[Rfam]
Nucleotides: 111
Base pairs, nucleotide, nucleotide: 008097009096010095011061012060013059014058017033018032019031020030021029040055041054042053043052044051067092068091069090070089073086074085075084076083
Number, partner (000 for none) and nucleotide at each position: 001000c002000a003000c004000g005000a006000u007000u008097g009096c010095c011061a012060c013059g014058g015000g016000a017033g018032u019031c020030c021029g022000g023000c024000g025000c026000g027000g028000c029021c030020g031019g032018g033017c034000u035000g036000a037000g038000a039000g040055g041054u042053g043052g044051g045000c046000g047000a048000g049000a050000g051044c052043u053042c054041a055040c056000g057000a058014c059013c060012g061011u062000u063000c064000g065000c066000a067092c068091c069090u070089g071000a072000u073086c074085c075084g076083g077000a078000u079000c080000a081000u082000g083076c084075c085074g086073g087000c088000g089070c090069a091068g092067g093000g094000a095010g096009g097008c098000u099000c100000c101000g102000c103000u104000c105000c106000u107000u108000g109000c110000g111000c
This 111-nucleotide RNA sequence from Prauserella cavernicola belongs to the Rfam family "TPP riboswitch aptamer (THI element)". The match comes from Rfam's covariance-model search (62 bits). The family's consensus secondary structure is taken from published work.